A member of the RNA family "DUF3800-III RNA", 106 nucleotides long. Pairs were carried over by alignment from the consensus structure, which is taken from published work. It is annotated as a small RNA.
RNA sequence: AAUAUUAGAUCAUAAGCCCUGAUGACUUUGGCUCUGUGUAACAGAACCUAGCUUCAGCUGAAAUGCUGCGGGAGAGACUGAAAUCGGAGCUCAGGCAGGUCAUUGA
Numbered sequence: 001a002a003u004a005u006u007a008g009a010u011c012a013u014a015a016g017c018c019c020u021g022a023u024g025a026c027u028u029u030g031g032c033u034c035u036g037u038g039u040a041a042c043a044g045a046a047c048c049u050a051g052c053u054u055c056a057g058c059u060g061a062a063a064u065g066c067u068g069c070g071g072g073a074g075a076g077a078c079u080g081a082a083a084u085c086g087g088a089g090c091u092c093a094g095g096c097a098g099g100u101c102a103u104u105g106a
Stems, first nucleotide, its partner, number of pairs: 004103002007100001010098001018095005026089003033045005052071002055068004